RNA sequence: ACAGUCUGAAAAUCACUUGUGGUUUCCUUGUGGCCCCUGGUGCAUUAACUGUGCCGACAGCAGAGGGAGCAUUAAACUUAUUGCUCAUGGUAAAGUGUGGGGAGUGAAACCCAUGUUCCUAUAAUC
Numbered sequence: 001a002c003a004g005u006c007u008g009a010a011a012a013u014c015a016c017u018u019g020u021g022g023u024u025u026c027c028u029u030g031u032g033g034c035c036c037c038u039g040g041u042g043c044a045u046u047a048a049c050u051g052u053g054c055c056g057a058c059a060g061c062a063g064a065g066g067g068a069g070c071a072u073u074a075a076a077c078u079u080a081u082u083g084c085u086c087a088u089g090g091u092a093a094a095g096u097g098u099g100g101g102g103a104g105u106g107a108a109a110c111c112c113a114u115g116u117u118c119c120u121a122u123a124a125u126c
Base pairs, nucleotide, nucleotide: 006051008049010046014042015041016040021035022034023033024032066119068117069116070115071114072113078107079106080105081104082103086099087098088097
RNA: Small nucleolar RNA ACA64
Organism: Bucco capensis